[Rfam]
RNA sequence: AGGUCGUUUCAAAGAGAGCUCAUGGGACCAAAACCAGGAGCUCUUCGCCCGGGACCGAAGAUCCAAGUUCUCCACAGGAUGCAACAGACACUCCACAGUGCUGUGUGUUCCCGAGGAGAUGGAAGG
Numbered sequence: 001a002g003g004u005c006g007u008u009u010c011a012a013a014g015a016g017a018g019c020u021c022a023u024g025g026g027a028c029c030a031a032a033a034c035c036a037g038g039a040g041c042u043c044u045u046c047g048c049c050c051g052g053g054a055c056c057g058a059a060g061a062u063c064c065a066a067g068u069u070c071u072c073c074a075c076a077g078g079a080u081g082c083a084a085c086a087g088a089c090a091c092u093c094c095a096c097a098g099u100g101c102u103g104u105g106u107g108u109u110c111c112c113g114a115g116g117a118g119a120u121g122g123a124a125g126g
Base pairs, nucleotide, nucleotide: 002056003055004054005053007051014045015044016043017042018041019040020039021038023037026035069119070118071117072116073115077111078110079109084104085103086102087101089100090099091098092097
Dot-bracket structure: .((((.(......((((((((.(..(........).))))))))).....).))))............(((((...(((....((((.((((....))))))))....)))...))))).......
Small nucleolar RNA SNORA25: a 126-nucleotide RNA from Myotis davidii. ACA25 is a member of the H/ACA class of snoRNA that guide the sites of modification of uridines to pseudouridines. It scores 94 bits against the family's covariance model. Taxonomically the source falls in Myotis (Eukaryota, Eumetazoa, Sarcopterygii, Vespertilionidae).